[Rfam]
RNA: Small Cajal body specific RNA 11
Organism: Phyllostomus discolor
Nucleotides: 137
Base pairs, nucleotide, nucleotide: 002063003062004061005060006059007058008057010056011055024052028050029049030048031047032046076132078130079129080128084123085122086121089118090117091116092114093113094112095110096109097108098107099106100105
Number, partner (000 for none) and nucleotide at each position: 001000u002063u003062g004061u005060c006059c007058u008057g009000g010056c011055c012000u013000a014000u015000g016000c017000u018000u019000u020000c021000u022000c023000c024052g025000c026000u027000c028050c029049c030048c031047u032046g033000c034000g035000c036000u037000c038000a039000g040000u041000u042000g043000u044000a045000a046032c047031a048030g049029g050028g051000g052024c053000c054000u055011g056010g057008c058007a059006g060005g061004a062003c063002a064000c065000a066000c067000a068000g069000c070000a071000a072000u073000c074000u075000c076132c077000c078130u079129c080128u081000g082000c083000a084123u085122u086121u087000a088000g089118g090117a091116g092114g093113c094112u095110g096109c097108c098107c099106u100105g101000a102000g103000u104000a105100c106099a107098g108097g109096g110095c111000c112094a113093g114092c115000u116091c117090u118089u119000a120000a121086a122085g123084g124000c125000a126000c127000a128080a129079g130078a131000a132076g133000a134000c135000a136000a137000u